[Rfam]
The family of this 86-nucleotide RNA sequence from Chiloscyllium punctatum is "Selenocysteine transfer RNA". NCBI's taxonomy places the organism under Eukaryota, Bilateria, Vertebrata, Chondrichthyes, Chiloscyllium. Its family is annotated with triplet codon-amino acid adaptor activity in the Gene Ontology. A search with the family's covariance model found it, with a score of 57 bits. The base pairs follow the family's consensus structure, which is taken from published work.

Nucleotides: 086
Base pairs, nucleotide, nucleotide: 001086003084004083005082006081007080009078012027013026014025015024017022028046029045030044032042033041048061049060050059051058052057063077064076065075066074
Number, partner (000 for none) and nucleotide at each position: 001086g002000c003084c004083u005082g006081g007080a008000u009078g010000a011000u012027u013026c014025c015024u016000u017022g018000u019000g020000g021000u022017c023000c024015a025014g026013g027012g028046u029045g030044c031000u032042g033041g034000c035000u036000u037000u038000a039000a040000a041033c042032c043000u044030g045029u046028a047000g048061c049060u050059g051058u052057c053000u054000a055000g056000u057052g058051a059050c060049a061048g062000a063077g064076u065075g066074g067000c068000u069000c070000a071000a072000u073000u074066c075065c076064a077063c078009c079000u080007u081006c082005c083004a084003g085000a086001u